[Rfam]
RNA sequence: ACAAUUUUGAUGUUGUAGAUACUGCAUCAGGAACUGAUUGGAUCAACUGAAUAGCCAUCAGUUCCUAAUGCAUUGCCUUCAGCAUCUAAUCA
Numbered sequence: 001a002c003a004a005u006u007u008u009g010a011u012g013u014u015g016u017a018g019a020u021a022c023u024g025c026a027u028c029a030g031g032a033a034c035u036g037a038u039u040g041g042a043u044c045a046a047c048u049g050a051a052u053a054g055c056c057a058u059c060a061g062u063u064c065c066u067a068a069u070g071c072a073u074u075g076c077c078u079u080c081a082g083c084a085u086c087u088a089a090u091c092a
Stems, first nucleotide, its partner, number of pairs: 023072005029066009039057003

mir-217 microRNA precursor family: a 92-nucleotide sequence from Leptobrachium leishanense. The match comes from Rfam's covariance-model search (101 bits). Lineage of the source: Eukaryota > Craniata > Euteleostomi > Sarcopterygii > Leptobrachium.